Shown here is a 149-nucleotide sequence from Candidatus Manganitrophus noduliformans, a member of the family "Group II catalytic intron D1-D4-7". From the family's description: Group II introns are found in rRNA, tRNA and mRNA of organelles in fungi, plants and protists, and also in mRNA in bacteria. Rfam links the family to the GO term Group II intron splicing. The family has 244 seed sequences and 1,296 matches in Rfam 15.1. The pairing is the family consensus, mapped onto this sequence.

RNA sequence: CCUGUUGUUUCGUCAACAGUAGCCUACUGACACAUGCGAAAGUGGCAACGCUUUGGUAUGAAGCUGUCAGGACAACGUAAUCCUGUCAGAAGACAUCUUUUUCGCCGUGAGGUGAAAAUGAUUACUGCAAGCAUUAUGCGGUUGGGAUG
Numbered sequence: 001c002c003u004g005u006u007g008u009u010u011c012g013u014c015a016a017c018a019g020u021a022g023c024c025u026a027c028u029g030a031c032a033c034a035u036g037c038g039a040a041a042g043u044g045g046c047a048a049c050g051c052u053u054u055g056g057u058a059u060g061a062a063g064c065u066g067u068c069a070g071g072a073c074a075a076c077g078u079a080a081u082c083c084u085g086u087c088a089g090a091a092g093a094c095a096u097c098u099u100u101u102u103c104g105c106c107g108u109g110a111g112g113u114g115a116a117a118a119u120g121a122u123u124a125c126u127g128c129a130a131g132c133a134u135u136a137u138g139c140g141g142u143u144g145g146g147a148u149g
Base pairs, nucleotide, nucleotide: 002019003018004017005016006015007014028069029068030067031066032065033060034059035058036057037056039054040053041052042051043050044049084095085094086093087092099118100117101116105112106111124142125141126140127139128138129137